[Rfam]
RNA sequence: CGGGGUGUCGCUCGGCGGCAACACCUUCCUUUCACGUUCCGGCUCUGCGAUCGCCCCUGGCCUGGGGUGCUACCCGGUUCGUGCCGCCCUGCUGGCGUCAGAGCAGUGACGAUGACGCGCCCG
Number, nucleotide and partner (000 for none) at each position: 001c000002g000003g000004g000005g000006u000007g000008u000009c000010g000011c000012u000013c000014g088015g087016c086017g085018g084019c083020a000021a000022c000023a000024c000025c000026u000027u000028c000029c000030u000031u000032u000033c000034a082035c081036g080037u000038u000039c077040c076041g075042g074043c000044u000045c000046u072047g070048c000049g000050a000051u000052c069053g068054c067055c066056c065057c000058u000059g000060g000061c000062c000063u000064g000065g056066g055067g054068u053069g052070c047071u000072a046073c000074c042075c041076g040077g039078u000079u000080c036081g035082u034083g019084c018085c017086g016087c015088c014089c000090u000091g000092c000093u000094g000095g000096c000097g000098u000099c000100a000101g000102a000103g000104c000105a000106g000107u000108g000109a000110c000111g000112a000113u000114g000115a000116c000117g000118c000119g000120c000121c000122c000123g000
About this RNA
The record is a 123-nucleotide sequence from Streptomyces roseus, which matches "gntR-DTE RNA" in Rfam. It is annotated as a small RNA. It scores 86 bits against the family's covariance model.